[Rfam]
RNA sequence: GACAUCAAAUGAUGAAAUUCGAAAUUAUCUUAGGACACCUUCCUACACAGUUUUAUUAGCUGUGGAUGAGAAAGACAAUUCCAUUCUGAUGAUGUG
Numbered sequence: 001g002a003c004a005u006c007a008a009a010u011g012a013u014g015a016a017a018u019u020c021g022a023a024a025u026u027a028u029c030u031u032a033g034g035a036c037a038c039c040u041u042c043c044u045a046c047a048c049a050g051u052u053u054u055a056u057u058a059g060c061u062g063u064g065g066a067u068g069a070g071a072a073a074g075a076c077a078a079u080u081c082c083a084u085u086c087u088g089a090u091g092a093u094g095u096g
Stems, first nucleotide, its partner, number of pairs: 002095006043050002
Rfam assigns this 96-nucleotide RNA sequence from Aquilegia coerulea to the family "Small nucleolar RNA snoR31/Z110/Z27". It is annotated as a C/D-box small nucleolar RNA.